[Rfam]
RNA sequence: GAUAGAAUAAUGUAGGUAAGGGAAGUCGGCAAAACGGAUCCGUAACUUCGGAACAAGGAUUGGCUCUAAGGGCUGGGCCGAUCGGGCUGAGGUUUCAAGCGUGCAGUGUAUGCUUGGCUGAGCUGUGCUGAGGAUUGAUUAGCUUGGUGCCGUUUGUUGACCCAAGCGGCUGUCCAGGUGGUCAUGUCUGAAGCAAAGCUGGCCGACAGACCAACACGUGCAGAACCUGAGCUGCGCGGCUGUCAGUUUAUUUGUACAGACCGUUUCGGUCGGCAUUCAACAGCCAACUUAGAACUGGCACGGACACAAGGAAUCUGACUGUAUAAUUAAAACAAAGCAUUGCGAUGGCCGAUGAUCGGUGUUGACGCAAUGUGAUUUCUGCCCAGUGCUCUGAAUGUCAAAGUGAAGAAAUUCAACCAAGCGCGGGUAAACGGCGGGAGUAACUAUGACUCUCUUAAGGUAGCCAAAUGCCUCGUCAUCUAAUUAGUGACGCGUAUGAAUGGAUCAACAAGAUUCCUUCUGUCCCUAUCUACUAUCUAGCGAAACCACAGCCAAGGGAACGGGCUUGGCAAA
Numbered sequence: 001g002a003u004a005g006a007a008u009a010a011u012g013u014a015g016g017u018a019a020g021g022g023a024a025g026u027c028g029g030c031a032a033a034a035c036g037g038a039u040c041c042g043u044a045a046c047u048u049c050g051g052a053a054c055a056a057g058g059a060u061u062g063g064c065u066c067u068a069a070g071g072g073c074u075g076g077g078c079c080g081a082u083c084g085g086g087c088u089g090a091g092g093u094u095u096c097a098a099g100c101g102u103g104c105a106g107u108g109u110a111u112g113c114u115u116g117g118c119u120g121a122g123c124u125g126u127g128c129u130g131a132g133g134a135u136u137g138a139u140u141a142g143c144u145u146g147g148u149g150c151c152g153u154u155u156g157u158u159g160a161c162c163c164a165a166g167c168g169g170c171u172g173u174c175c176a177g178g179u180g181g182u183c184a185u186g187u188c189u190g191a192a193g194c195a196a197a198g199c200u201g202g203c204c205g206a207c208a209g210a211c212c213a214a215c216a217c218g219u220g221c222a223g224a225a226c227c228u229g230a231g232c233u234g235c236g237c238g239g240c241u242g243u244c245a246g247u248u249u250a251u252u253u254g255u256a257c258a259g260a261c262c263g264u265u266u267c268g269g270u271c272g273g274c275a276u277u278c279a280a281c282a283g284c285c286a287a288c289u290u291a292g293a294a295c296u297g298g299c300a301c302g303g304a305c306a307c308a309a310g311g312a313a314u315c316u317g318a319c320u321g322u323a324u325a326a327u328u329a330a331a332a333c334a335a336a337g338c339a340u341u342g343c344g345a346u347g348g349c350c351g352a353u354g355a356u357c358g359g360u361g362u363u364g365a366c367g368c369a370a371u372g373u374g375a376u377u378u379c380u381g382c383c384c385a386g387u388g389c390u391c392u393g394a395a396u397g398u399c400a401a402a403g404u405g406a407a408g409a410a411a412u413u414c415a416a417c418c419a420a421g422c423g424c425g426g427g428u429a430a431a432c433g434g435c436g437g438g439a440g441u442a443a444c445u446a447u448g449a450c451u452c453u454c455u456u457a458a459g460g461u462a463g464c465c466a467a468a469u470g471c472c473u474c475g476u477c478a479u480c481u482a483a484u485u486a487g488u489g490a491c492g493c494g495u496a497u498g499a500a501u502g503g504a505u506c507a508a509c510a511a512g513a514u515u516c517c518u519u520c521u522g523u524c525c526c527u528a529u530c531u532a533c534u535a536u537c538u539a540g541c542g543a544a545a546c547c548a549c550a551g552c553c554a555a556g557g558g559a560a561c562g563g564g565c566u567u568g569g570c571a572a573a
Stems, first nucleotide, its partner, number of pairs: 003539004012533007020525003037061005046051001062296002065293006071285005077274009086179003091174003099167002102164001103162001108157003112153002117148009128137001130135001297301001309518007316510002320334003337373008348360004377504003381435003386432002388428004393424001396423003404415004436454006455459001475491005552569005

Rfam assigns this 573-nucleotide part of an RNA from Trichinella pseudospiralis to the family "Eukaryotic large subunit ribosomal RNA".
It scores 2794 bits against the family's covariance model.
Gene Ontology terms of the family: structural constituent of ribosome and ribosome.